[Rfam]
RNA: Group II catalytic intron D1-D4-2
RNA sequence: GGUGGCAGACCCACCGAAGGGUAUGACAGGCAAACCCUUCAAACCACCUUGUGGUGCUGCCUUCCGAAAGGGGGUGGUAUUGAACGACAAGGAAAAGGCGAAGAUUAUUCGUCAGGU
Numbered sequence: 001g002g003u004g005g006c007a008g009a010c011c012c013a014c015c016g017a018a019g020g021g022u023a024u025g026a027c028a029g030g031c032a033a034a035c036c037c038u039u040c041a042a043a044c045c046a047c048c049u050u051g052u053g054g055u056g057c058u059g060c061c062u063u064c065c066g067a068a069a070g071g072g073g074g075u076g077g078u079a080u081u082g083a084a085c086g087a088c089a090a091g092g093a094a095a096a097g098g099c100g101a102a103g104a105u106u107a108u109u110c111g112u113c114a115g116g117u
Stems, first nucleotide, its partner, number of pairs: 001015005016040006024032002045116001047092006053081002056078003060074004097113006